A member of the RNA family "Ribosomal protein L10 leader" from Eubacterium ruminantium, 153 nucleotides long.
NCBI's taxonomy places the organism under Bacteria, Bacillati, Eubacteriales, Eubacteriaceae, Eubacterium.
The match comes from Rfam's covariance-model search (70 bits).
Pairs were carried over by alignment from the consensus structure, which was predicted with CMfinder.
[Rfam]
RNA sequence: CUAGCAAACGAUGAACUGCCGUAGACAGCGGGUGCCGCGAGGCGUAAUGAGUUUUGGCUCGCCUGCCGAGGAAAGAAUCGUUUUUGAUUAUUAUUAAUUAUGACGAAUUUCAACUUCCGUACGGUAUAGUAUGGAAGUUUUUCUUUUUUUAAA
Numbered sequence: 001c002u003a004g005c006a007a008a009c010g011a012u013g014a015a016c017u018g019c020c021g022u023a024g025a026c027a028g029c030g031g032g033u034g035c036c037g038c039g040a041g042g043c044g045u046a047a048u049g050a051g052u053u054u055u056g057g058c059u060c061g062c063c064u065g066c067c068g069a070g071g072a073a074a075g076a077a078u079c080g081u082u083u084u085u086g087a088u089u090a091u092u093a094u095u096a097a098u099u100a101u102g103a104c105g106a107a108u109u110u111c112a113a114c115u116u117c118c119g120u121a122c123g124g125u126a127u128a129g130u131a132u133g134g135a136a137g138u139u140u141u142u143c144u145u146u147u148u149u150u151a152a153a
Base pairs, nucleotide, nucleotide: 028066029065030064031063032062033061034043035042036041113138114137115136116135117134118133119132120131121130122129